[Rfam]
RNA: Archaeal large subunit ribosomal RNA, nucleotides 1376 to 1742
RNA sequence: GGUAGUAGCAGCAUAGUCGGGUGAGAAUCCCGACCGCCGGAAGGGCAAGGGUUCCACGGCAAUGUUCGUCAGCCGUGGGUGAGUCGGUCCUAAGGUGGCCCGUAACUCGGCGCCGCCGAAAAGGGAAGCCGGUUAAUAUUCCGGCACCGCUGCCCGCUGCCUUUAUGGCACCCGACGCCUCGGGAUAGGCCGGGCGGGAGCUGCCAGCCCGUCCAAGCGUCGAAGCCCCCGGAGAUCCGUAAUGGAGAGAAGGGGGUGAAGGCGUGAUGGCGUAAGCCGGCCGACUCCUGGGGCCCGUGAAAAGGGGGGCAGUUGGACCGUACCGAGAACCGACACAGGUGCCCUGGGUGAGUAGCCUAAGGCGUGG
Numbered sequence: 001g002g003u004a005g006u007a008g009c010a011g012c013a014u015a016g017u018c019g020g021g022u023g024a025g026a027a028u029c030c031c032g033a034c035c036g037c038c039g040g041a042a043g044g045g046c047a048a049g050g051g052u053u054c055c056a057c058g059g060c061a062a063u064g065u066u067c068g069u070c071a072g073c074c075g076u077g078g079g080u081g082a083g084u085c086g087g088u089c090c091u092a093a094g095g096u097g098g099c100c101c102g103u104a105a106c107u108c109g110g111c112g113c114c115g116c117c118g119a120a121a122a123g124g125g126a127a128g129c130c131g132g133u134u135a136a137u138a139u140u141c142c143g144g145c146a147c148c149g150c151u152g153c154c155c156g157c158u159g160c161c162u163u164u165a166u167g168g169c170a171c172c173c174g175a176c177g178c179c180u181c182g183g184g185a186u187a188g189g190c191c192g193g194g195c196g197g198g199a200g201c202u203g204c205c206a207g208c209c210c211g212u213c214c215a216a217g218c219g220u221c222g223a224a225g226c227c228c229c230c231g232g233a234g235a236u237c238c239g240u241a242a243u244g245g246a247g248a249g250a251a252g253g254g255g256g257u258g259a260a261g262g263c264g265u266g267a268u269g270g271c272g273u274a275a276g277c278c279g280g281c282c283g284a285c286u287c288c289u290g291g292g293g294c295c296c297g298u299g300a301a302a303a304g305g306g307g308g309g310c311a312g313u314u315g316g317a318c319c320g321u322a323c324c325g326a327g328a329a330c331c332g333a334c335a336c337a338g339g340u341g342c343c344c345u346g347g348g349u350g351a352g353u354a355g356c357c358u359a360a361g362g363c364g365u366g367g
Stems, first nucleotide, its partner, number of pairs: 016034006035364004043344004049324002054078006063071002085320003089124002094117006100110003128145005148316001149313007171306003177294009188282005193213006217265004226256005236246003271276001330339002345359004